[Rfam]
RNA sequence: ACUGGACUACGCCAGUAUAAAUAGGCAUUAAGCGUAGUGCGUUCCAGUCUUCACAGACUGGAGGUUGUU
Numbered sequence: 001a002c003u004g005g006a007c008u009a010c011g012c013c014a015g016u017a018u019a020a021a022u023a024g025g026c027a028u029u030a031a032g033c034g035u036a037g038u039g040c041g042u043u044c045c046a047g048u049c050u051u052c053a054c055a056g057a058c059u060g061g062a063g064g065u066u067g068u069u
Stems, first nucleotide, its partner, number of pairs: 001016004006038006024069004032040001042063008
Pistol ribozyme: a 69-nucleotide RNA sequence.
The family's consensus secondary structure is taken from published work.
On this family, see Teplova et al., Angew Chem Int Ed Engl 2020: "Crucial Roles of Two Hydrated Mg(2+) Ions in Reaction Catalysis of the Pistol Ribozyme".